The family of this 233-nucleotide RNA from Cellulomonas cellasea is "Actinobacteria sRNA Ms_IGR-5". The organism belongs to Cellulomonas cellasea, within Bacteria. The match comes from Rfam's covariance-model search (79 bits). The base pairs follow the family's consensus structure.
[Rfam]
RNA sequence: ACAUGGGAAAGGAGGUGGUCCUGAAGUGAUUUCUCUUCGGACGCGUGAGGUGACUGUCCGCUAGUCGCCCGAGUACUCGGACGGAUUGCUUCGAUCCACCCGGUGCCCGCUGGUCCUCGAGGACCGCCGGGCGGCGAGCGAGAUCCAGGCAGCCACCGCAGCCCGUGGGAGCCGCGCACUCGUCCAGCGCGGCAGGGCCCCGUCAAGGGGUUCCGGCCCACGGGCUGUUCCCU
Number, nucleotide and partner (000 for none) at each position: 001a000002c000003a000004u000005g000006g000007g000008a000009a000010a000011g000012g000013a000014g058015g057016u056017g055018g054019u053020c000021c000022u000023g000024a000025a000026g000027u000028g000029a000030u000031u000032u000033c000034u000035c000036u000037u000038c000039g000040g000041a000042c000043g000044c000045g000046u000047g000048a000049g000050g000051u000052g000053a019054c018055u017056g016057u015058c014059c140060g139061c138062u137063a000064g135065u134066c000067g132068c131069c130070c129071g127072a000073g125074u000075a000076c000077u000078c000079g000080g000081a000082c000083g000084g000085a000086u000087u000088g000089c000090u000091u000092c000093g000094a000095u000096c000097c000098a000099c000100c000101c000102g000103g000104u000105g000106c000107c000108c000109g000110c000111u000112g000113g000114u000115c000116c000117u000118c000119g000120a000121g000122g000123a000124c000125c073126g000127c071128c000129g070130g069131g068132c067133g000134g065135c064136g000137a062138g061139c060140g059141a000142g000143a000144u000145c000146c000147a000148g000149g000150c000151a000152g000153c000154c000155a000156c000157c000158g000159c227160a226161g225162c224163c223164c222165g221166u220167g219168g218169g217170a000171g000172c192173c191174g190175c189176g188177c187178a000179c000180u000181c000182g000183u000184c000185c000186a000187g177188c176189g175190c174191g173192g172193c000194a000195g000196g000197g000198c000199c000200c000201c000202g000203u000204c000205a000206a000207g000208g000209g000210g000211u000212u000213c000214c000215g000216g000217c169218c168219c167220a166221c165222g164223g163224g162225c161226u160227g159228u000229u000230c000231c000232c000233u000